The family of this 76-nucleotide sequence from Alligator mississippiensis is "Mammalian CPEB3 ribozyme". Rfam's curators write: The mammalian CPEB3 ribozyme is a self cleaving RNA located in the second intron of the CPEB3 gene which belongs to a family of genes regulating messenger RNA polyadenylation. The organism belongs to Alligator, within Eukaryota. A search with the family's covariance model found it, with a score of 49 bits.

[Rfam]
RNA sequence: AUAGCAGGUUCAAGGCCAUAGCAGAAGCACUCAUGGUGCAGGCCUGUCAGAUACCAAUGAAUCUGCAAAAUCUGCU
Numbered sequence: 001a002u003a004g005c006a007g008g009u010u011c012a013a014g015g016c017c018a019u020a021g022c023a024g025a026a027g028c029a030c031u032c033a034u035g036g037u038g039c040a041g042g043c044c045u046g047u048c049a050g051a052u053a054c055c056a057a058u059g060a061a062u063c064u065g066c067a068a069a070a071u072c073u074g075c076u
Base pairs, nucleotide, nucleotide: 014044015043016041020076021075022074023073024072025071027039028038029037048065049064050063051062052061054059